[Rfam]
Shown here is a 347-nucleotide sequence from Centropus unirufus, a member of the family "7SK RNA". Rfam's curators write: 7SK was discovered as an abundant small nuclear RNA in the mid-70s but a possible function has only recently been suggested. Two independent studies have found that 7SK RNA binds the CDK9/cyclin T complex (known as elongation factor P-TEFb). The family has 45 seed sequences and 49,373 matches in Rfam 15.1. Lineage of the source: Eukaryota > Craniata > Archelosauria > Neognathae > Centropus.
RNA sequence: GUAUAAGUGUGAUAUCACUGCAAUAUCUGUCACCUCACUGAUUGCCCAGGUUGAUUUGGCUGAUCUGGCUGGCUAGGGGGGUGACUCCUUCCUCCCUCACCACUCCAUAUGUGUCUUUCCUGAAGCUGCAUGUUAAGUCAAAAAGGUCAGCCUUCCCUGACAGAGGCAUACCAUUCAUUGGUCAGGAGCACACAGUAGCUGUACUCCUCUGCUAGAAUGUCCCAAAAACCUCUCUGACUGGAUGCAGGUGACAAAAUGCAAUUCAGAAAUUGUGAUUUGAGUGAGCAGUAUGAUCCAACUGAAUCAAAUCACCUCAAUAACAAUAAAUUAGCCUGUAGCUGGUAUAU
Numbered sequence: 001g002u003a004u005a006a007g008u009g010u011g012a013u014a015u016c017a018c019u020g021c022a023a024u025a026u027c028u029g030u031c032a033c034c035u036c037a038c039u040g041a042u043u044g045c046c047c048a049g050g051u052u053g054a055u056u057u058g059g060c061u062g063a064u065c066u067g068g069c070u071g072g073c074u075a076g077g078g079g080g081g082u083g084a085c086u087c088c089u090u091c092c093u094c095c096c097u098c099a100c101c102a103c104u105c106c107a108u109a110u111g112u113g114u115c116u117u118u119c120c121u122g123a124a125g126c127u128g129c130a131u132g133u134u135a136a137g138u139c140a141a142a143a144a145g146g147u148c149a150g151c152c153u154u155c156c157c158u159g160a161c162a163g164a165g166g167c168a169u170a171c172c173a174u175u176c177a178u179u180g181g182u183c184a185g186g187a188g189c190a191c192a193c194a195g196u197a198g199c200u201g202u203a204c205u206c207c208u209c210u211g212c213u214a215g216a217a218u219g220u221c222c223c224a225a226a227a228a229c230c231u232c233u234c235u236g237a238c239u240g241g242a243u244g245c246a247g248g249u250g251a252c253a254a255a256a257u258g259c260a261a262u263u264c265a266g267a268a269a270u271u272g273u274g275a276u277u278u279g280a281g282u283g284a285g286c287a288g289u290a291u292g293a294u295c296c297a298a299c300u301g302a303a304u305c306a307a308a309u310c311a312c313c314u315c316a317a318u319a320a321c322a323a324u325a326a327a328u329u330a331g332c333c334u335g336u337a338g339c340u341g342g343u344a345u346a347u
Base pairs, nucleotide, nucleotide: 001104004099006097007096009094011091012090022086024084025082026081027080028079030077031076033072034071035068036067037066040065041064042063043062044060045059046058116166117165118164119163120137121136123134125133126132138160139159140158145156146155198299200297205292209288210287211286212285220280221279225276228273229272323347324346325345328342329341330340331339332338